[Rfam]
Nucleotides: 075
Stems, first nucleotide, its partner, number of pairs: 014046003018043003025035004055075007
Number, partner (000 for none) and nucleotide at each position: 001000u002000c003000a004000a005000u006000g007000c008000g009000a010000u011000g012000a013000u014046g015045c016044a017000g018043g019042a020041g021000a022000u023000u024000g025035c026034g027033u028032c029000c030000u031000g032028g033027a034026c035025g036000g037000u038000a039000a040000c041020u042019u043018c044016u045015g046014c047000g048000g049000a050000g051000u052000a053000u054000g055075u056074c057073c058072g059071g060070u061069c062000a063000u064000c065000g066000g067000g068000c069061g070060g071059c072058u073057g074056g075055g
The record is a 75-nucleotide RNA sequence, which matches "S10-Clostridia ribosomal protein leader" in Rfam. It is one of the family's seed sequences. The family's RNA type in Rfam is cis-regulatory leader. The literature on the family includes a 2020 paper in BMC Microbiol by Eckert and Weinberg, "Discovery of 20 novel ribosomal leader candidates in bacteria and archaea".